[Rfam]
RNA sequence: UCCCCAAAUCAGUUUUGUAAAAUCUGCAUUGAAAGGAUGAUUUCCUUUCAAUGCAGAUUUUACAAAACUGAUUUGGGGA
Number, nucleotide and partner (000 for none) at each position: 001u000002c000003c077004c076005c075006a074007a073008a072009u071010c070011a069012g068013u067014u066015u065016u064017g063018u062019a061020a060021a059022a000023u057024c056025u055026g054027c053028a052029u051030u000031g049032a048033a000034a000035g000036g000037a000038u000039g000040a000041u000042u000043u000044c000045c000046u000047u000048u032049c031050a000051a029052u028053g027054c026055a025056g024057a023058u000059u021060u020061u019062a018063c017064a016065a015066a014067a013068c012069u011070g010071a009072u008073u007074u006075g005076g004077g003078g000079a000

Source information: This 79-nucleotide RNA sequence from Acanthosepion pharaonis belongs to the Rfam family "mir-19 microRNA precursor family". Rfam links the family to the GO terms RISC complex and miRNA-mediated post-transcriptional gene silencing. The family's consensus secondary structure was predicted with RNAalifold. The organism belongs to Acanthosepion, within Eukaryota.